A member of the RNA family "terC RNA" from Rubellimicrobium roseum, 68 nucleotides long. Rfam classes the family as a cis-regulatory element. The match comes from Rfam's covariance-model search (45 bits). Taxonomically the source falls in Rubellimicrobium (Bacteria, Pseudomonadota, Rhodobacterales, Roseobacteraceae).

RNA sequence: GUCCUGGUCCGGGCCCCCUCUGGCCGGCGUGCCCCGCCCUGACAUGCCGGCGAUGUCGGACCGCUCCC
Numbered sequence: 001g002u003c004c005u006g007g008u009c010c011g012g013g014c015c016c017c018c019u020c021u022g023g024c025c026g027g028c029g030u031g032c033c034c035c036g037c038c039c040u041g042a043c044a045u046g047c048c049g050g051c052g053a054u055g056u057c058g059g060a061c062c063g064c065u066c067c068c
Stems, first nucleotide, its partner, number of pairs: 006062007023051008